Description
The record is an 85-nucleotide RNA sequence from Macaca mulatta, which matches "mir-422 microRNA precursor family" in Rfam.
RNA sequence: GAGAGAAGCACUGGACUCAGGGUCAGAAGGCCUGAGUCUCCCUGCUGCAGAUGGGCUGUGUGUCCCUGAGCCAAGCCUUGUCCUC
Numbered sequence: 001g002a003g004a005g006a007a008g009c010a011c012u013g014g015a016c017u018c019a020g021g022g023u024c025a026g027a028a029g030g031c032c033u034g035a036g037u038c039u040c041c042c043u044g045c046u047g048c049a050g051a052u053g054g055g056c057u058g059u060g061u062g063u064c065c066c067u068g069a070g071c072c073a074a075g076c077c078u079u080g081u082c083c084u085c
Base pairs, nucleotide, nucleotide: 001085002084003083005079006078008076009075012073013072014071016070017069018068019067020066021065022064024062025061027059029057030056031055032054033053036052037051038050039049040047
For this family Rfam cites "Altered expression profiles of microRNAs during TPA-induced differentiation of HL-60 cells" (Kasashima et al., Biochem Biophys Res Commun, 2004).